[Rfam]
Nucleotides: 174
Base pairs, nucleotide, nucleotide: 005170006169007168008167009166010165011161012160013097015156016155017154020150021149022148025146026145027144028142029141030140031139040114041113042112043111045074046073047072048071049070054065055064056063057062081106082105083104084103088100089099090098118134
Number, partner (000 for none) and nucleotide at each position: 001000c002000g003000g004000g005170u006169g007168u008167c009166c010165c011161g012160u013097u014000a015156g016155g017154u018000g019000a020150g021149g022148c023000g024000u025146c026145u027144g028142a029141c030140g031139u032000g033000u034000a035000u036000g037000c038000g039000u040114c041113u042112g043111c044000u045074g046073c047072c048071c049070a050000g051000a052000a053000a054065a055064a056063u057062c058000g059000a060000g061000a062057g063056a064055u065054u066000c067000c068000a069000a070049u071048g072047g073046g074045u075000u076000g077000a078000a079000c080000a081106g082105g083104c084103c085000g086000c087000g088100a089099c090098c091000g092000a093000a094000u095000c096000a097013a098090g099089g100088u101000c102000c103084g104083g105082c106081u107000u108000a109000a110000u111043g112042c113041a114040g115000a116000c117000c118134g119000g120000u121000g122000g123000c124000c125000c126000u127000c128000g129000g130000g131000u132000c133000g134118c135000c136000u137000a138000g139031a140030c141029g142028u143000g144027c145026a146025g147000u148022g149021c150020u151000g152000a153000a154017g155016c156015u157000c158000u159000g160012a161011c162000g163000u164000a165010g166009g167008g168007a169006u170005g171000c172000g173000c174000u